[Rfam]
RNA sequence: AGGAAUUCCAAGGGGAGCCCUGCGAGGGGGCUGAGAGAUCGCCUUCCGGUUUGGUCGUCAUGACCUCCGGCGCCGCGAUGACCCUUUGAACCUGAUCCGGGUCAUGCCGGCGAAGGGAUCGGAACAGCCUCAGCCC
Numbered sequence: 001a002g003g004a005a006u007u008c009c010a011a012g013g014g015g016a017g018c019c020c021u022g023c024g025a026g027g028g029g030g031c032u033g034a035g036a037g038a039u040c041g042c043c044u045u046c047c048g049g050u051u052u053g054g055u056c057g058u059c060a061u062g063a064c065c066u067c068c069g070g071c072g073c074c075g076c077g078a079u080g081a082c083c084c085u086u087u088g089a090a091c092c093u094g095a096u097c098c099g100g101g102u103c104a105u106g107c108c109g110g111c112g113a114a115g116g117g118a119u120c121g122g123a124a125c126a127g128c129c130u131c132a133g134c135c136c
Base pairs, nucleotide, nucleotide: 006124007123008122009121011085012084013083014082017031018030019029020028021027038079039078040077041076042075091116092115093114097110098109099108100107

Shown here is a 136-nucleotide RNA from Aquabacter spiritensis, a member of the family "TPP riboswitch aptamer (THI element)". It scores 70 bits against the family's covariance model. Pairs were carried over by alignment from the consensus structure, which is taken from published work. From the family's description: Vitamin B(1) in its active form thiamin pyrophosphate (TPP) is an essential coenzyme that is synthesised by coupling of pyrimidine and thiazole moieties in bacteria. Taxonomically the source falls in Aquabacter (Bacteria, Pseudomonadati, Pseudomonadota, Alphaproteobacteria).